Rfam assigns this 91-nucleotide sequence from Balearica regulorum to the family "Small nucleolar SNORD12/SNORD106".
The family has 8 seed sequences and 2,264 matches in Rfam 15.1.
Rfam links the family to the GO terms nucleolus and RNA processing.
A reference for the family is Huttenhofer et al. (2001), "RNomics: an experimental approach that identifies 201 candidates for novel, small, non-messenger RNAs in mouse", EMBO J.
It scores 78 bits against the family's covariance model.
The family's consensus secondary structure was predicted with RNAalifold.
By type it is a C/D-box small nucleolar RNA.

RNA sequence: GCUGGUGUAGGUGAUGACUGACUUUUUUCCCCAUCAGAGCGACAGUGUUGAUUUCUCACUGUUCAAGCCAAAUCAUGUCUGAUGCACCAGU
Numbered sequence: 001g002c003u004g005g006u007g008u009a010g011g012u013g014a015u016g017a018c019u020g021a022c023u024u025u026u027u028u029c030c031c032c033a034u035c036a037g038a039g040c041g042a043c044a045g046u047g048u049u050g051a052u053u054u055c056u057c058a059c060u061g062u063u064c065a066a067g068c069c070a071a072a073u074c075a076u077g078u079c080u081g082a083u084g085c086a087c088c089a090g091u
Base pairs, nucleotide, nucleotide: 001091002090003089004088005087006086007085008084009083
Dot-bracket structure: (((((((((.........................................................................)))))))))